[Rfam]
RNA sequence: ACGGGGUAUCUCCCUCAUUAUUAAAGAUAUAAGGUUGCGGUUUUCGCGAUAGCUGUGACUGAAGAGGACCUUAAUGAUCCUAUAACGGCCUGAGGUAGAGGGGUUUUAGUCGGUAGGUUCGAGGACUUCUUCCUCGGGAAUCCCACACUACCCAGUCGUACAGUUGGCUGGGUGUCUUUUGAAGAUUUCCCCUUUUCC
Numbered sequence: 001a002c003g004g005g006g007u008a009u010c011u012c013c014c015u016c017a018u019u020a021u022u023a024a025a026g027a028u029a030u031a032a033g034g035u036u037g038c039g040g041u042u043u044u045c046g047c048g049a050u051a052g053c054u055g056u057g058a059c060u061g062a063a064g065a066g067g068a069c070c071u072u073a074a075u076g077a078u079c080c081u082a083u084a085a086c087g088g089c090c091u092g093a094g095g096u097a098g099a100g101g102g103g104u105u106u107u108a109g110u111c112g113g114u115a116g117g118u119u120c121g122a123g124g125a126c127u128u129c130u131u132c133c134u135c136g137g138g139a140a141u142c143c144c145a146c147a148c149u150a151c152c153c154a155g156u157c158g159u160a161c162a163g164u165u166g167g168c169u170g171g172g173u174g175u176c177u178u179u180u181g182a183a184g185a186u187u188u189c190c191c192c193u194u195u196u197c198c
Base pairs, nucleotide, nucleotide: 039070040069041068042067043066044065094198095197097195098194100191101190102189109146110145112143113142118138119137120136121135122134123133124132125131148174150173151172152171153170154169